[Rfam]
RNA sequence: GCCACGCCUAGAUCGGCCAAUCGAAAAGCGGGAAACCCUGCCCGCCUGGCGCGGCAACCCAUUCUCAGGGU
Numbered sequence: 001g002c003c004a005c006g007c008c009u010a011g012a013u014c015g016g017c018c019a020a021u022c023g024a025a026a027a028g029c030g031g032g033a034a035a036c037c038c039u040g041c042c043c044g045c046c047u048g049g050c051g052c053g054g055c056a057a058c059c060c061a062u063u064c065u066c067a068g069g070g071u
Stems, first nucleotide, its partner, number of pairs: 001055003005051004011022003028045005035071006
Shown here is a 71-nucleotide sequence from Chromobacterium violaceum, a member of the family "int-alpA RNA". The organism belongs to Chromobacterium violaceum, within Bacteria. The family's consensus secondary structure is taken from published work. It is one of the family's seed sequences. Rfam classes the family as a small RNA.